[Rfam]
RNA sequence: CUCCUGAGUCCCGUUGCAGCCCCGAGUGAGCCUACGCUAAUUUCCUUAUAUAAUCAGUCCCUAUGUAGCUAGUGUGGAGCCUGAGAGGAUUAUGACAAUGUGGCAGGUGAUGUGGGACCAGGGCACAUGGAG
Numbered sequence: 001c002u003c004c005u006g007a008g009u010c011c012c013g014u015u016g017c018a019g020c021c022c023c024g025a026g027u028g029a030g031c032c033u034a035c036g037c038u039a040a041u042u043u044c045c046u047u048a049u050a051u052a053a054u055c056a057g058u059c060c061c062u063a064u065g066u067a068g069c070u071a072g073u074g075u076g077g078a079g080c081c082u083g084a085g086a087g088g089a090u091u092a093u094g095a096c097a098a099u100g101u102g103g104c105a106g107g108u109g110a111u112g113u114g115g116g117a118c119c120a121g122g123g124c125a126c127a128u129g130g131a132g
Base pairs, nucleotide, nucleotide: 001132002131003130005129006128008126009125010123011122012121019118020116021115022114054084055083056082057081059079061077062076065073066072
This 132-nucleotide RNA sequence from Jaculus jaculus belongs to the Rfam family "small Cajal body-specific RNA 17". A reference for the family is Tycowski et al. (2004), "Guide RNAs with 5' Caps and Novel Box C/D snoRNA-like Domains for Modification of snRNAs in Metazoa", Curr Biol. The match comes from Rfam's covariance-model search (87 bits). Pairs were carried over by alignment from the consensus structure, which is taken from published work. Rfam describes the family as follows. scaRNAs are a specific class of small nuclear RNAs which localise to the Cajal bodies and guide the modification of RNA polymerase II transcribed spliceosomal RNAs U1, U2, U4, U5 and U12. The complete human U12-22/U4-8 scaRNA is composed of two tandem C/D box domains (termed U12-22 and U4-8).